[Rfam]
A member of the RNA family "U4 spliceosomal RNA" from Saccharomyces cerevisiae, 161 nucleotides long. The sequence is in the family's curated seed alignment. Its Rfam clan is "U4 clan". Taxonomically the source falls in Saccharomyces (Eukaryota, Opisthokonta, Dikarya, Saccharomycetales).
RNA sequence: AUCCUUAUGCACGGGAAAUACGCAUAUCAGUGAGGAUUCGUCCGAGAUUGUGUUUUUGCUGGUUGAAAUUUAAUUAUAAACCAGACCGUCUCCUCAUGGUCAAUUCGGUGUUCGCUUUUGAAUACUUCAAGACUAUGUAGGGAAUUUUUGGAAUUACCUUU
Numbered sequence: 001a002u003c004c005u006u007a008u009g010c011a012c013g014g015g016a017a018a019u020a021c022g023c024a025u026a027u028c029a030g031u032g033a034g035g036a037u038u039c040g041u042c043c044g045a046g047a048u049u050g051u052g053u054u055u056u057u058g059c060u061g062g063u064u065g066a067a068a069u070u071u072a073a074u075u076a077u078a079a080a081c082c083a084g085a086c087c088g089u090c091u092c093c094u095c096a097u098g099g100u101c102a103a104u105u106c107g108g109u110g111u112u113c114g115c116u117u118u119u120g121a122a123u124a125c126u127u128c129a130a131g132a133c134u135a136u137g138u139a140g141g142g143a144a145u146u147u148u149u150g151g152a153a154u155u156a157c158c159u160u161u
Base pairs, nucleotide, nucleotide: 020053021052022051023050024049026048027047028046034043035042036041091142092141093140095137096136097135098134099133100132101131
Its family is annotated with U4 snRNP and spliceosomal tri-snRNP complex assembly in the Gene Ontology.